A member of the RNA family "Small nucleolar RNA SNORA13" from Gavia stellata, 129 nucleotides long.
ACA13 is a member of the H/ACA class of snoRNA that guide the sites of modification of uridines to pseudouridines.
Rfam classes the family as an H/ACA-box small nucleolar RNA.
The family is grouped with related families in Rfam's "SNORA13 clan".
RNA sequence: UGCCUUUGUGUUGCCCAUUCAUUCCUGUCCAGAAUGAAUGUGGUGUCAAAAAAGGCAAACAGGAAUUCUUGCUCAAACUUAAGGAGCUGGUUGUUUACCUUUCUCCUCCCUGUUUUUGCAAGGACAAAA
Number, nucleotide and partner (000 for none) at each position: 001u000002g056003c055004c054005u053006u052007u051008g000009u048010g047011u000012u045013g044014c043015c042016c040017a039018u038019u037020c036021a035022u034023u033024c000025c000026u000027g000028u000029c000030c000031a000032g000033a023034a022035u021036g020037a019038a018039u017040g016041u000042g015043g014044u013045g012046u000047c010048a009049a000050a000051a007052a006053a005054g004055g003056c002057a000058a000059a000060c000061a000062g000063g000064a000065a000066u000067u000068c122069u121070u120071g119072c000073u000074c118075a117076a116077a115078c000079u000080u000081a000082a114083g113084g000085a111086g110087c000088u000089g099090g098091u000092u000093g000094u000095u000096u000097a000098c090099c089100u000101u000102u000103c000104u000105c000106c000107u000108c000109c000110c086111u085112g000113u083114u082115u077116u076117u075118g074119c071120a070121a069122g068123g000124a000125c000126a000127a000128a000129a000